[Rfam]
A member of the RNA family "Eukaryotic large subunit ribosomal RNA" from Coccidioides posadasii, 592 nucleotides of a longer RNA.
RNA sequence: AAGAAAAGAAGACUCUGUUGAGCUUGACUCUAGUUUGACAUUGUGAAAAGACAUAUUAGGUGUAGAAUAGAUGAGAGCUUUGGCACUGGUGAAAUAUUACUAUCUUUAUUAUUUUUUUACUUAUUCAAUAAAGCAGAACUGGGCUUUACUACCCAACUUCUAAUAUUAAGGUUCUUUGUGGGCUGAUCUAAAUUGAAGACAUUGUCAGGUGAAAAGUUUGACUGGGGCAACACAUCUGUUAAAUUAUAAUACAGGUGUCCUAAGAGAGACUUAUAGAGAACAGAAAUCUCCAGUAGAAUAAAAGAGUAAAAGUUCUCUUGAUUUUGAUUUUCAGUGUGAAUACAAAUCAUGAAAGUGUAGCCUAUUGAUCCUUUAGUCCCUUGAAAUUUGAGGCUAGAGAUGCCAGAAAAGUUACCACAGAGAUAACUAGCUUGUGGCAGCUAAGUAUUCAUAGUGAUGUUGCUUUUUGAUUCUUUAAUAUUGGCUCUUCCUAUCAUACUGAAGCAGAAUUCAGUAAGUGUUGGAUUGUUCACUCACUAAUAGAGAAUAUAAGCUAGGUUUAGACUGUUGUAAGACAGGUUAGUUUUAUCCU
Numbered sequence: 001a002a003g004a005a006a007a008g009a010a011g012a013c014u015c016u017g018u019u020g021a022g023c024u025u026g027a028c029u030c031u032a033g034u035u036u037g038a039c040a041u042u043g044u045g046a047a048a049a050g051a052c053a054u055a056u057u058a059g060g061u062g063u064a065g066a067a068u069a070g071a072u073g074a075g076a077g078c079u080u081u082g083g084c085a086c087u088g089g090u091g092a093a094a095u096a097u098u099a100c101u102a103u104c105u106u107u108a109u110u111a112u113u114u115u116u117u118u119a120c121u122u123a124u125u126c127a128a129u130a131a132a133g134c135a136g137a138a139c140u141g142g143g144c145u146u147u148a149c150u151a152c153c154c155a156a157c158u159u160c161u162a163a164u165a166u167u168a169a170g171g172u173u174c175u176u177u178g179u180g181g182g183c184u185g186a187u188c189u190a191a192a193u194u195g196a197a198g199a200c201a202u203u204g205u206c207a208g209g210u211g212a213a214a215a216g217u218u219u220g221a222c223u224g225g226g227g228c229a230a231c232a233c234a235u236c237u238g239u240u241a242a243a244u245u246a247u248a249a250u251a252c253a254g255g256u257g258u259c260c261u262a263a264g265a266g267a268g269a270c271u272u273a274u275a276g277a278g279a280a281c282a283g284a285a286a287u288c289u290c291c292a293g294u295a296g297a298a299u300a301a302a303a304g305a306g307u308a309a310a311a312g313u314u315c316u317c318u319u320g321a322u323u324u325u326g327a328u329u330u331u332c333a334g335u336g337u338g339a340a341u342a343c344a345a346a347u348c349a350u351g352a353a354a355g356u357g358u359a360g361c362c363u364a365u366u367g368a369u370c371c372u373u374u375a376g377u378c379c380c381u382u383g384a385a386a387u388u389u390g391a392g393g394c395u396a397g398a399g400a401u402g403c404c405a406g407a408a409a410a411g412u413u414a415c416c417a418c419a420g421a422g423a424u425a426a427c428u429a430g431c432u433u434g435u436g437g438c439a440g441c442u443a444a445g446u447a448u449u450c451a452u453a454g455u456g457a458u459g460u461u462g463c464u465u466u467u468u469g470a471u472u473c474u475u476u477a478a479u480a481u482u483g484g485c486u487c488u489u490c491c492u493a494u495c496a497u498a499c500u501g502a503a504g505c506a507g508a509a510u511u512c513a514g515u516a517a518g519u520g521u522u523g524g525a526u527u528g529u530u531c532a533c534u535c536a537c538u539a540a541u542a543g544a545g546a547a548u549a550u551a552a553g554c555u556a557g558g559u560u561u562a563g564a565c566u567g568u569u570g571u572a573a574g575a576c577a578g579g580u581u582a583g584u585u586u587u588a589u590c591c592u
Stems, first nucleotide, its partner, number of pairs: 002592002006587002014421004019417002021413005027217003034209007043120009053109003059103001070101001072099003077084002124197005135189003141153002170184005220233001223229001234256006259360001266316001268314003271297002274292001276290004298307002322346003327341004348357003371399006379393004430471001432469001434468001436464006445455002482557001483555004488546002491543002495520002498515006522536003526532001563581004567576003

Pairs were carried over by alignment from the consensus structure, which is taken from published work. Lineage of the source: Eukaryota > Fungi > Pezizomycotina > Coccidioides > Coccidioides posadasii. Rfam's curators put it in the seed alignment. The family has 88 seed sequences and 107,465 matches in Rfam 15.1.